[Rfam]
RNA sequence: CACUACUUGUCGGAGUGCCUAGCUAUUUAUAGCAGGCUGAGACCGUGAAAACGGGAUCCGUUGAACCUGAUCAGGCUAAUACCUGCGAAGGGAAACAAGGGAAACGCAUUA
Numbered sequence: 001c002a003c004u005a006c007u008u009g010u011c012g013g014a015g016u017g018c019c020u021a022g023c024u025a026u027u028u029a030u031a032g033c034a035g036g037c038u039g040a041g042a043c044c045g046u047g048a049a050a051a052c053g054g055g056a057u058c059c060g061u062u063g064a065a066c067c068u069g070a071u072c073a074g075g076c077u078a079a080u081a082c083c084u085g086c087g088a089a090g091g092g093a094a095a096c097a098a099g100g101g102a103a104a105c106g107c108a109u110u111a
Stems, first nucleotide, its partner, number of pairs: 006099005011060004016054001017037004044053003066091003072085004
RNA: TPP riboswitch aptamer (THI element)